[Rfam]
RNA sequence: UAUCCCAAAACAACGGAAACCCUACCUCUUUUCCGUCCUUGCGGCUCCAAUGACCGCGCCAGUGUGAAUCAGAAUUACGUCUUCGUG
Dot-bracket structure: .................................((..(((((((.(.....).)))))..))..)).....................
Numbered sequence: 001u002a003u004c005c006c007a008a009a010a011c012a013a014c015g016g017a018a019a020c021c022c023u024a025c026c027u028c029u030u031u032u033c034c035g036u037c038c039u040u041g042c043g044g045c046u047c048c049a050a051u052g053a054c055c056g057c058g059c060c061a062g063u064g065u066g067a068a069u070c071a072g073a074a075u076u077a078c079g080u081c082u083u084c085g086u087g
Stems, first nucleotide, its partner, number of pairs: 034066002038062002040058005046052001